[Rfam]
A member of the RNA family "Small nucleolar RNA SNORA31" from Rousettus aegyptiacus, 130 nucleotides long. The family has 5 seed sequences and 2,094 matches in Rfam 15.1. NCBI's taxonomy places the organism under Eukaryota, Sarcopterygii, Amniota, Pteropodidae, Rousettus. By type it is an H/ACA-box small nucleolar RNA. The family's consensus secondary structure was predicted with RNAalifold. A reference for the family is Huttenhofer et al. (2001), "RNomics: an experimental approach that identifies 201 candidates for novel, small, non-messenger RNAs in mouse", EMBO J. From the family's description: ACA31 (SNORA31) belongs to the H/ACA class of snoRNAs which are thought to guide the sites of modification of uridines to pseudouridines. ACA31 is predicted to guide the pseudouridylation of U3713 in 28S rRNA and U218 in 18S rRNA. This family includes the mouse homologue snoMBI-161. Its family is annotated with RNA processing and nucleolus in the Gene Ontology.

RNA sequence: ACGCAUCUCUGACAGACCCGGAGCAGUGCCCGUCUGCUGCUGGGGUUCCGCUGCAGAUGCAAGAAAAAAGGGUCCCCGCGCUUUCCGUCUGUCGACGGUGGCAGCCGAGAUUGAAUAGGGGAGCACAGGG
Numbered sequence: 001a002c003g004c005a006u007c008u009c010u011g012a013c014a015g016a017c018c019c020g021g022a023g024c025a026g027u028g029c030c031c032g033u034c035u036g037c038u039g040c041u042g043g044g045g046u047u048c049c050g051c052u053g054c055a056g057a058u059g060c061a062a063g064a065a066a067a068a069a070g071g072g073u074c075c076c077c078g079c080g081c082u083u084u085c086c087g088u089c090u091g092u093c094g095a096c097g098g099u100g101g102c103a104g105c106c107g108a109g110a111u112u113g114a115a116u117a118g119g120g121g122a123g124c125a126c127a128g129g130g
Stems, first nucleotide, its partner, number of pairs: 003060006011051001013050001015048001016046003022038005073122005081113001084110002089104005